[Rfam]
RNA sequence: UCUCCUUUAGUAUAGGGGUAGUACACAAGCCUGUCACGCUUGCAGCCCGGGUUCGAAUCCCGGAGGGAGAG
Numbered sequence: 001u002c003u004c005c006u007u008u009a010g011u012a013u014a015g016g017g018g019u020a021g022u023a024c025a026c027a028a029g030c031c032u033g034u035c036a037c038g039c040u041u042g043c044a045g046c047c048c049g050g051g052u053u054c055g056a057a058u059c060c061c062g063g064a065g066g067g068a069g070a071g
Base pairs, nucleotide, nucleotide: 001070002069003068004067005066006065007064010024011023012022013021026042027041028040029039030038047063048062049061050060051059
tRNA: a 71-nucleotide sequence from Schizosaccharomyces pombe. The sequence is in the family's curated seed alignment. The base pairs follow the family's consensus structure, which is taken from published work. NCBI's taxonomy places the organism under Eukaryota, Dikarya, Ascomycota, Schizosaccharomycetales, Schizosaccharomyces.